[Rfam]
The family of this 110-nucleotide RNA sequence from Ulvibacterium marinum is "6S-Flavo RNA".
Nucleotides: 110
Stems, first nucleotide, its partner, number of pairs: 024090005035081005044072003051066004
Number, partner (000 for none) and nucleotide at each position: 001000a002000c003000u004000c005000a006000a007000c008000a009000c010000u011000a012000a013000u014000u015000u016000g017000u018000u019000u020000g021000a022000a023000a024090a025089g026088g027087g028086u029000g030000a031000g032000u033000u034000u035081a036080g037079g038078u039077u040000g041000u042000a043000a044072a045071a046070g047000c048000a049000g050000g051066c052065c053064u054063u055000a056000c057000u058000a059000g060000u061000a062000u063054a064053a065052g066051g067000a068000u069000c070046c071045u072044u073000g074000a075000g076000c077039a078038g079037u080036c081035u082000g083000u084000u085000a086028g087027c088026c089025c090024u091000a092000a093000a094000c095000u096000u097000g098000u099000u100000u101000a102000u103000a104000g105000g106000a107000g108000u109000u110000u
Source information:
Pairs were carried over by alignment from the consensus structure, which is taken from published work. The family's RNA type in Rfam is small RNA. The match comes from Rfam's covariance-model search (102 bits).